A member of the RNA family "mir-399 microRNA precursor family" from Hordeum vulgare, 138 nucleotides long.
Rfam 15.1 lists 2,396 matches to the family in 221 species.
About the family: mir-399 was identified in both Arabidopsis thaliana and Oryza sativa computationally and was later experimentally verified. mir-399 is thought to target mRNAs coding for a phosphatase transporter.
A search with the family's covariance model found it, with a score of 65 bits.
A reference for the family is Jones-Rhoades and Bartel (2004), "Computational Identification of Plant MicroRNAs and Their Targets, Including a Stress-Induced miRNA", Mol Cell.
Taxonomically the source falls in Hordeum vulgare (Eukaryota, Pooideae, Hordeinae, Hordeum).
[Rfam]
RNA sequence: GUGUGAAUCCCAGGGCGCUUCUCCUUUGGCACGGAGGCAUACAUGCAUAACCAGGUGAAGAAGCUCCAGGCCGACCAGUGCGUACCGCUAGCCAGCCGCGUCGUGCGUGCCAAAGGAGAAUUGCCCUGCGAUUCACCU
Numbered sequence: 001g002u003g004u005g006a007a008u009c010c011c012a013g014g015g016c017g018c019u020u021c022u023c024c025u026u027u028g029g030c031a032c033g034g035a036g037g038c039a040u041a042c043a044u045g046c047a048u049a050a051c052c053a054g055g056u057g058a059a060g061a062a063g064c065u066c067c068a069g070g071c072c073g074a075c076c077a078g079u080g081c082g083u084a085c086c087g088c089u090a091g092c093c094a095g096c097c098g099c100g101u102c103g104u105g106c107g108u109g110c111c112a113a114a115g116g117a118g119a120a121u122u123g124c125c126c127u128g129c130g131a132u133u134c135a136c137c138u
Base pairs, nucleotide, nucleotide: 005134006133007132008131009130011128012127013126014125015124016123017122019120021118022117023116024115027112028111029110030109031108032107033106035104